[Rfam]
RNA sequence: UUAUCAUCUAGAGUUGGCUGAGGGACUGGCCCAAUGAAGCCGCGGCAACCAUCCGGAAGGAACGGUGCCAAUUCCUACAGGAUUUUAUCCUGGCAGAUGAGAG
Numbered sequence: 001u002u003a004u005c006a007u008c009u010a011g012a013g014u015u016g017g018c019u020g021a022g023g024g025a026c027u028g029g030c031c032c033a034a035u036g037a038a039g040c041c042g043c044g045g046c047a048a049c050c051a052u053c054c055g056g057a058a059g060g061a062a063c064g065g066u067g068c069c070a071a072u073u074c075c076u077a078c079a080g081g082a083u084u085u086u087a088u089c090c091u092g093g094c095a096g097a098u099g100a101g102a103g
Stems, first nucleotide, its partner, number of pairs: 001103002004100005013043001015042004022032003028075002044069004049065002052061003073095001078092006
Dot-bracket structure: ((.(((((....(.((((...(((...[[)))......)))))((((.((.(((....)))..))))))...(]]..((((((...))))))..)))))).))